[Rfam]
Record summary
Rfam assigns this 221-nucleotide RNA sequence from Spinacia oleracea to the family "Plant small nucleolar RNA U3". The match comes from Rfam's covariance-model search (174 bits). Rfam links the family to the GO terms RNA processing and nucleolus.
RNA sequence: ACGACCUUACUUGAACAGGAUCUGUUCUAUAGUAUUCGUACCUCUGUAUCUUUGAGUUCUAAAGAGACAGAAAACCAAGUCUGGUGGAUGAAUUAUAUGACCGUGUGAUCUGAGCGUGAUUAACGGCAAACAUUGAUCUACUGGUGGUCUCUGGUGCUGUAGAUGAUCGUUCCUCAGUUUCCCAUGAACUUGAGGAAGAUCACACGGUUGUCUGACAGACU
Numbered sequence: 001a002c003g004a005c006c007u008u009a010c011u012u013g014a015a016c017a018g019g020a021u022c023u024g025u026u027c028u029a030u031a032g033u034a035u036u037c038g039u040a041c042c043u044c045u046g047u048a049u050c051u052u053u054g055a056g057u058u059c060u061a062a063a064g065a066g067a068c069a070g071a072a073a074a075c076c077a078a079g080u081c082u083g084g085u086g087g088a089u090g091a092a093u094u095a096u097a098u099g100a101c102c103g104u105g106u107g108a109u110c111u112g113a114g115c116g117u118g119a120u121u122a123a124c125g126g127c128a129a130a131c132a133u134u135g136a137u138c139u140a141c142u143g144g145u146g147g148u149c150u151c152u153g154g155u156g157c158u159g160u161a162g163a164u165g166a167u168c169g170u171u172c173c174u175c176a177g178u179u180u181c182c183c184a185u186g187a188a189c190u191u192g193a194g195g196a197a198g199a200u201c202a203c204a205c206g207g208u209u210g211u212c213u214g215a216c217a218g219a220c221u
Stems, first nucleotide, its partner, number of pairs: 001039002003036001006032002013027006044070004049065006079220005100208012113171004123160006131153002135149004172195006179188003
Record summary
Rfam classes the family as a C/D-box small nucleolar RNA. Small nucleolar RNAs (snoRNAs) are involved in the processing and modification of rRNA in the nucleolus. There are two main classes of snoRNAs: the box C/D class, and the box H/ACA class. The organism belongs to Spinacia, within Eukaryota. The literature on the family includes a 2010 paper in RNA Biol by Marz and Stadler, "Comparative analysis of eukaryotic U3 snoRNA".